[Rfam]
RNA sequence: GGUCAUGAGUGCCAGUGCGAAGCCCCGGCUCGCUGGCCGGCAACCCUCCCAGACCGCGGUGGGGUGCCCCGGGUGAGGACCAGGUCGACGGACACCGUCCGUCGGCAAGCGCGGAGA
Numbered sequence: 001g002g003u004c005a006u007g008a009g010u011g012c013c014a015g016u017g018c019g020a021a022g023c024c025c026c027g028g029c030u031c032g033c034u035g036g037c038c039g040g041c042a043a044c045c046c047u048c049c050c051a052g053a054c055c056g057c058g059g060u061g062g063g064g065u066g067c068c069c070c071g072g073g074u075g076a077g078g079a080c081c082a083g084g085u086c087g088a089c090g091g092a093c094a095c096c097g098u099c100c101g102u103c104g105g106c107a108a109g110c111g112c113g114g115a116g117a
Base pairs, nucleotide, nucleotide: 001081002080003079004078009038011037012036013035014034015033016032021030022029039068040067041066044064045063046062048059049058084106085105086104087103088102089101090100091099092098093097

The record is a 117-nucleotide RNA from Intrasporangium chromatireducens, which matches "SAM (S-adenosyl methionine) riboswitch aptamer" in Rfam. The match comes from Rfam's covariance-model search (107 bits). Pairs were carried over by alignment from the consensus structure, which is taken from published work.